RNA: raiA RNA
Organism: Romboutsia maritimum
RNA sequence: AUAUUUUAGGUCUGUGGUUGAAAGUCCAAGCCAGUCGCAGGCAAAGGGAUCCACGUAAGUUAACCCUAAAAAUUGGGUUGAUGAUCAUGGUGCGGCUUAGAAGUAAGUCCUACCGAUAAUAAAAUCGAGAGAGUUAAUAGUGCGGCGAACCCAAGCAAAAGCUCCAGUAGGCGAGUGUGGGGUCAAAAACCAGGUCAGCUAAAUUAU
Numbered sequence: 001a002u003a004u005u006u007u008a009g010g011u012c013u014g015u016g017g018u019u020g021a022a023a024g025u026c027c028a029a030g031c032c033a034g035u036c037g038c039a040g041g042c043a044a045a046g047g048g049a050u051c052c053a054c055g056u057a058a059g060u061u062a063a064c065c066c067u068a069a070a071a072a073u074u075g076g077g078u079u080g081a082u083g084a085u086c087a088u089g090g091u092g093c094g095g096c097u098u099a100g101a102a103g104u105a106a107g108u109c110c111u112a113c114c115g116a117u118a119a120u121a122a123a124a125u126c127g128a129g130a131g132a133g134u135u136a137a138u139a140g141u142g143c144g145g146c147g148a149a150c151c152c153a154a155g156c157a158a159a160a161g162c163u164c165c166a167g168u169a170g171g172c173g174a175g176u177g178u179g180g181g182g183u184c185a186a187a188a189a190c191c192a193g194g195u196c197a198g199c200u201a202a203a204u205u206a207u
Stems, first nucleotide, its partner, number of pairs: 001207003005203005012198003015192005028178001030176001031041001033097007050090002055085001058082001060080001062078001064076001088185001109171005114127004131164004140156002